[Rfam]
RNA sequence: CCCGCUGUUUCGUCAGCGGUAACCUACCGACACAUGCAUCGCUGGUAACGGUGGUGUGUGAAGCUGUCGGGACAAUGCAGCCUUCCUGAAAAGGAGGAGCAAAAGCUGUGAGGCUGAGCAACUAUCCCUAGUAUCAGGGGAUAUGGGUG
Numbered sequence: 001c002c003c004g005c006u007g008u009u010u011c012g013u014c015a016g017c018g019g020u021a022a023c024c025u026a027c028c029g030a031c032a033c034a035u036g037c038a039u040c041g042c043u044g045g046u047a048a049c050g051g052u053g054g055u056g057u058g059u060g061a062a063g064c065u066g067u068c069g070g071g072a073c074a075a076u077g078c079a080g081c082c083u084u085c086c087u088g089a090a091a092a093g094g095a096g097g098a099g100c101a102a103a104a105g106c107u108g109u110g111a112g113g114c115u116g117a118g119c120a121a122c123u124a125u126c127c128c129u130a131g132u133a134u135c136a137g138g139g140g141a142u143a144u145g146g147g148u149g
Base pairs, nucleotide, nucleotide: 002019003018004017005016006015007014028069029068030067031066032065033060034059035058036057037056038055039054040053041052042051043050044049082097083096084095085094086093087092099119100118106113107112124142125141126140127139128138129137
Shown here is a 149-nucleotide RNA from Dyadobacter koreensis, a member of the family "Group II catalytic intron D1-D4-7". Lineage of the source: Bacteria > Pseudomonadati > Cytophagia > Spirosomataceae > Dyadobacter. On this family, see Bonen and Vogel, Trends Genet 2001: "The ins and outs of group II introns". Group II introns are found in rRNA, tRNA and mRNA of organelles in fungi, plants and protists, and also in mRNA in bacteria.